[Rfam]
RNA sequence: ACAAAAAAUUUAUUUCCACUUCGUAUAAUCCCAAUGAUAUGGUUUGGGAGUUUCUACCAAGAGCCCUAAACUCUUGAUUAUGAAGUCUGUCUCUUUGUUU
Numbered sequence: 001a002c003a004a005a006a007a008a009u010u011u012a013u014u015u016c017c018a019c020u021u022c023g024u025a026u027a028a029u030c031c032c033a034a035u036g037a038u039a040u041g042g043u044u045u046g047g048g049a050g051u052u053u054c055u056a057c058c059a060a061g062a063g064c065c066c067u068a069a070a071c072u073c074u075u076g077a078u079u080a081u082g083a084a085g086u087c088u089g090u091c092u093c094u095u096u097g098u099u100u
Stems, first nucleotide, its partner, number of pairs: 018086008029049006058076006
A member of the RNA family "Purine riboswitch aptamer" from Vibrio aerogenes, 100 nucleotides long. It scores 81 bits against the family's covariance model. Rfam links the family to the GO term purine nucleobase biosynthetic process. Taxonomically the source falls in Vibrio aerogenes (Bacteria, Pseudomonadota, Gammaproteobacteria, Vibrionales).